The family of this 72-nucleotide RNA from Pseudomonas fluorescens is "Pseudomonas sRNA P10". By type it is a small RNA. Rfam's curators put it in the seed alignment. The source organism's lineage runs through Bacteria, Pseudomonadati, Pseudomonadota, Pseudomonas and Pseudomonas fluorescens.
RNA sequence: CGUAUCCGACCCCACCGCUUGCCCGCUCCCCGGCCACGGCACCAACCCGAUCGCCGCCGGUUCCGGCGACGU
Numbered sequence: 001c002g003u004a005u006c007c008g009a010c011c012c013c014a015c016c017g018c019u020u021g022c023c024c025g026c027u028c029c030c031c032g033g034c035c036a037c038g039g040c041a042c043c044a045a046c047c048c049g050a051u052c053g054c055c056g057c058c059g060g061u062u063c064c065g066g067c068g069a070c071g072u
Base pairs, nucleotide, nucleotide: 007071008070017040018039019038020036021035023033024032025031051069052068053067054066055065056064